[Rfam]
RNA sequence: CCUUUUGAGUAUCAAAACCACACGAGUAGGAUAAAUCCAAAAGUGGAUACGGUGAACAAGGAA
Number, nucleotide and partner (000 for none) at each position: 001c061002c060003u059004u058005u000006u000007g000008a000009g050010u049011a048012u047013c046014a000015a000016a000017a000018c000019c000020a000021c045022a044023c043024g000025a000026g000027u000028a000029g038030g037031a036032u000033a000034a000035a000036u031037c030038c029039a000040a000041a000042a000043g023044u022045g021046g013047a012048u011049a010050c009051g000052g000053u000054g000055a000056a000057c000058a004059a003060g002061g001062a000063a000